[Rfam]
RNA sequence: GGAACAUGCACUCGUUGCGGUGCAACGAUGGCAAAAGA
Numbered sequence: 001g002g003a004a005c006a007u008g009c010a011c012u013c014g015u016u017g018c019g020g021u022g023c024a025a026c027g028a029u030g031g032c033a034a035a036a037g038a
Stems, first nucleotide, its partner, number of pairs: 005031001013027006
This 38-nucleotide RNA from Synergistes jonesii belongs to the Rfam family "Selenocysteine insertion sequence 4". A search with the family's covariance model found it, with a score of 56 bits.